A member of the RNA family "Guanidine-II riboswitch aptamer (mini-ykkC)" from Alcanivorax borkumensis, 49 nucleotides long. The base pairs follow the family's consensus structure, which is taken from published work. NCBI's taxonomy places the organism under Bacteria, Pseudomonadati, Pseudomonadota, Gammaproteobacteria, Alcanivorax borkumensis. From the family's description: Simpler in structure and has fewer highly conserved nucleotide positions than the ykkC-yxkD leader. Despite this each of its two stem-loop structures directly bind free guanidine. Therefore, mini-ykkC RNA motif represents a distinct class of guanidine-sensing RNAs. Rfam's curators put it in the seed alignment.
RNA sequence: CCCUGGGGACGACCCCGGCGGCCAAGGCUAUAAAGACGGGACGGCCCGU
Number, nucleotide and partner (000 for none) at each position: 001c020002c000003c018004u017005g016006g015007g014008g013009a000010c000011g000012a000013c008014c007015c006016c005017g004018g003019c000020g001021g000022c000023c000024a000025a000026g000027g000028c000029u000030a000031u000032a000033a000034a000035g000036a049037c048038g047039g046040g045041a000042c000043g000044g000045c040046c039047c038048g037049u036